[Rfam]
RNA sequence: AUCGCUGUGUGUGACUGGCGGAGCAUGGGGAACCAUGAGGAAGCACACGGACAUACGAGCCGUACGCCUGGCAGAGGUA
Number, nucleotide and partner (000 for none) at each position: 001a000002u000003c000004g000005c050006u049007g048008u047009g046010u045011g044012u043013g000014a000015c040016u039017g068018g067019c066020g065021g000022a000023g000024c000025a036026u035027g034028g033029g000030g000031a000032a000033c028034c027035a026036u025037g000038a000039g016040g015041a000042a000043g012044c011045a010046c009047a008048c007049g006050g005051a000052c000053a000054u000055a000056c000057g000058a000059g072060c071061c070062g000063u000064a000065c020066g019067c018068c017069u000070g061071g060072c059073a000074g000075a000076g000077g000078u000079a000
RNA: ZMP/ZTP riboswitch aptamer (pfl RNA motif)